[Rfam]
RNA sequence: GAUGCUCACACGGGGUGCCCAAAAGGGCUGAGAGGCUUAUCCGCCAACCCGCUGAACCUGAUCCGGCUCGUACCGGCGGAGGGAUGGAGAGCUUUCGUUGC
Numbered sequence: 001g002a003u004g005c006u007c008a009c010a011c012g013g014g015g016u017g018c019c020c021a022a023a024a025g026g027g028c029u030g031a032g033a034g035g036c037u038u039a040u041c042c043g044c045c046a047a048c049c050c051g052c053u054g055a056a057c058c059u060g061a062u063c064c065g066g067c068u069c070g071u072a073c074c075g076g077c078g079g080a081g082g083g084a085u086g087g088a089g090a091g092c093u094u095u096c097g098u099u100g101c
Stems, first nucleotide, its partner, number of pairs: 006089001009086002011051004017028004035044002057082003063076004
RNA: TPP riboswitch aptamer (THI element)